Notes: This 99-nucleotide RNA from Flaviflexus salsibiostraticola belongs to the Rfam family "SAM riboswitch aptamer (S box leader)". Gene Ontology term of the family: regulation of gene expression. The SAM riboswitch is found upstream of a number of genes which code for proteins involved in methionine or cysteine biosynthesis in Gram-positive bacteria. NCBI's taxonomy places the organism under Bacteria, Bacillati, Actinomycetota, Actinomycetales, Flaviflexus.
[Rfam]
RNA sequence: UGACCAUCAAGAGCAGCUGAGAGACCUGGCUCGCAGAAGCUGCAGCAACCGAGAGCGUUCGGUGCUACCGCCAGGACCGAUGGAGGAGAUCGAUGAUUA
Numbered sequence: 001u002g003a004c005c006a007u008c009a010a011g012a013g014c015a016g017c018u019g020a021g022a023g024a025c026c027u028g029g030c031u032c033g034c035a036g037a038a039g040c041u042g043c044a045g046c047a048a049c050c051g052a053g054a055g056c057g058u059u060c061g062g063u064g065c066u067a068c069c070g071c072c073a074g075g076a077c078c079g080a081u082g083g084a085g086g087a088g089a090u091c092g093a094u095g096a097u098u099a
Stems, first nucleotide, its partner, number of pairs: 001099003005095004013043005021032003026074004044066004049062002051058001070091001